[Rfam]
Rfam assigns this 38-nucleotide sequence from Pyramidobacter sp. CG50-2 to the family "Selenocysteine insertion sequence 4".
For this family Rfam cites "Molecular analysis of the grd operon coding for genes of the glycine reductase and of the thioredoxin system from Clostridium sticklandii" (Graentzdoerffer et al., Arch Microbiol, 2001).
Rfam links the family to the GO term selenocysteine incorporation.
RNA sequence: GGCACGUGCACUCGUUGCGGGUCAACGAUGGGCAAAGA
Number, nucleotide and partner (000 for none) at each position: 001g000002g000003c000004a000005c031006g000007u000008g000009c000010a000011c000012u000013c027014g026015u025016u024017g023018c000019g000020g000021g000022u000023c017024a016025a015026c014027g013028a000029u000030g000031g005032g000033c000034a000035a000036a000037g000038a000
Record summary: The match comes from Rfam's covariance-model search (38 bits).